[Rfam]
RNA sequence: UUGACGGUGAAGUCCCAGGUGUCGUCGGACUCCAGGAUCGCCUUGUAGGUGAAGUGGUCGCCGUCGGCGAGCGUCUCCAGGACUGCCUCGUCGCCGUACUUGCCGACGCCGAUCUUGUUCAGCUUGCCGUGCGCGAUCAGACAGACCUGGUCGGCCGGAUGGCCGCGCUCGACGAUCACGUCACCCGGCUGGAACUCACGCUGCACGAACCGGUCGGCGAGCGCGCUGAGCACCUCGACGUCGUCGUAACUGCGCAACAUCCCCAGCUCGCACAGCUCCUGCGGGAUCACCCGGACCUCCGCGCCGGCGGUGGUGAAGGUGACCCGGCCGUCCCCGACGGCGUAGCUGAGCCGCCGGUUCACCCGGUAGGCGCCGCCCUUGGCCUCCACCCACGGCAGCAGUUUGAGCAGCCACCGCGAGGUGAUGCCCUGCAUCUGCGGCUCGGACUUCGUGGUCGUGGCCAGGUUCCGGGCCGCGGCCGUGCUCAGGCUGAGCUGGGACUGGCCG
Numbered sequence: 001u002u003g004a005c006g007g008u009g010a011a012g013u014c015c016c017a018g019g020u021g022u023c024g025u026c027g028g029a030c031u032c033c034a035g036g037a038u039c040g041c042c043u044u045g046u047a048g049g050u051g052a053a054g055u056g057g058u059c060g061c062c063g064u065c066g067g068c069g070a071g072c073g074u075c076u077c078c079a080g081g082a083c084u085g086c087c088u089c090g091u092c093g094c095c096g097u098a099c100u101u102g103c104c105g106a107c108g109c110c111g112a113u114c115u116u117g118u119u120c121a122g123c124u125u126g127c128c129g130u131g132c133g134c135g136a137u138c139a140g141a142c143a144g145a146c147c148u149g150g151u152c153g154g155c156c157g158g159a160u161g162g163c164c165g166c167g168c169u170c171g172a173c174g175a176u177c178a179c180g181u182c183a184c185c186c187g188g189c190u191g192g193a194a195c196u197c198a199c200g201c202u203g204c205a206c207g208a209a210c211c212g213g214u215c216g217g218c219g220a221g222c223g224c225g226c227u228g229a230g231c232a233c234c235u236c237g238a239c240g241u242c243g244u245c246g247u248a249a250c251u252g253c254g255c256a257a258c259a260u261c262c263c264c265a266g267c268u269c270g271c272a273c274a275g276c277u278c279c280u281g282c283g284g285g286a287u288c289a290c291c292c293g294g295a296c297c298u299c300c301g302c303g304c305c306g307g308c309g310g311u312g313g314u315g316a317a318g319g320u321g322a323c324c325c326g327g328c329c330g331u332c333c334c335c336g337a338c339g340g341c342g343u344a345g346c347u348g349a350g351c352c353g354c355c356g357g358u359u360c361a362c363c364c365g366g367u368a369g370g371c372g373c374c375g376c377c378c379u380u381g382g383c384c385u386c387c388a389c390c391c392a393c394g395g396c397a398g399c400a401g402u403u404u405g406a407g408c409a410g411c412c413a414c415c416g417c418g419a420g421g422u423g424a425u426g427c428c429c430u431g432c433a434u435c436u437g438c439g440g441c442u443c444g445g446a447c448u449u450c451g452u453g454g455u456c457g458u459g460g461c462c463a464g465g466u467u468c469c470g471g472g473c474c475g476c477g478g479c480c481g482u483g484c485u486c487a488g489g490c491u492g493a494g495c496u497g498g499g500a501c502u503g504g505c506c507g
Stems, first nucleotide, its partner, number of pairs: 006390004011385002014382002018328001021325001025322003031316002038313005044307001048305003051299002054233002058229003062225003065111004077102001079100002082097002085094002117222004123216001127212001129210002131206001133204003140197001143196002154189005160183001162177001235295002240290002243287003251281002254278001256277001258275001261270001329342004353377001355375003360372001362370002391431002394428004399423002403418001407415001437476004442471005447465003451461002477506002480503002484499005